The family of this 100-nucleotide RNA sequence from Burkholderia singularis is "ZMP/ZTP riboswitch aptamer (pfl RNA motif)". The match comes from Rfam's covariance-model search (62 bits).
RNA sequence: AUCUCCCUGCGUGACUGGCGAUAAGGCCUUUCGGGGCCAAGGUGGAGCGUCCCACCGUGAAGCGCGGGGUUCGCUUUUGCCGUUCGCCUGGGCAGCCGUU
Numbered sequence: 001a002u003c004u005c006c007c008u009g010c011g012u013g014a015c016u017g018g019c020g021a022u023a024a025g026g027c028c029u030u031u032c033g034g035g036g037c038c039a040a041g042g043u044g045g046a047g048c049g050u051c052c053c054a055c056c057g058u059g060a061a062g063c064g065c066g067g068g069g070u071u072c073g074c075u076u077u078u079g080c081c082g083u084u085c086g087c088c089u090g091g092g093c094a095g096c097c098g099u100u
Stems, first nucleotide, its partner, number of pairs: 005069008015059001017088005042055004077095005